The family of this 61-nucleotide RNA from Populus tomentosa is "Plastid-psbN 5UTR RNA". Rfam describes the family as follows. Plastid psbN is a non-coding RNA (ncRNA) recognised in plastids. It was reported as a conserved 11 stem-loop in the prime untranslated region (5UTR) of psbN genes. The base pairs follow the family's consensus structure, which was predicted with LocARNA. Taxonomically the source falls in Populus (Eukaryota, Streptophyta, Streptophytina, Euphyllophyta). It is annotated as a cis-regulatory element. A search with the family's covariance model found it, with a score of 59 bits.
RNA sequence: UUUGACACCCAUCAAAGCAGCAGUUCUCCACCCCAAAGCUACUUUACCAUAUUUUGAAUUC
Numbered sequence: 001u002u003u004g005a006c007a008c009c010c011a012u013c014a015a016a017g018c019a020g021c022a023g024u025u026c027u028c029c030a031c032c033c034c035a036a037a038g039c040u041a042c043u044u045u046a047c048c049a050u051a052u053u054u055u056g057a058a059u060u061c
Stems, first nucleotide, its partner, number of pairs: 017045001019043002022040004027035001